[Rfam]
RNA sequence: GGUGCGUGGCAGGGGUUUCUUUCGGCCUCCAGCCGCAUAGUAAGUUGUAGGCCGGCGGAAACUACUUGCCGCCCACU
Numbered sequence: 001g002g003u004g005c006g007u008g009g010c011a012g013g014g015g016u017u018u019c020u021u022u023c024g025g026c027c028u029c030c031a032g033c034c035g036c037a038u039a040g041u042a043a044g045u046u047g048u049a050g051g052c053c054g055g056c057g058g059a060a061a062c063u064a065c066u067u068g069c070c071g072c073c074c075a076c077u
Stems, first nucleotide, its partner, number of pairs: 006072003010068004014063007022055007030047003
The record is a 77-nucleotide RNA from Cloeon dipterum, which matches "mir-2796 microRNA precursor family" in Rfam. Rfam links the family to the GO terms RISC complex and miRNA-mediated post-transcriptional gene silencing. The organism belongs to Cloeon, within Eukaryota. The match comes from Rfam's covariance-model search (74 bits).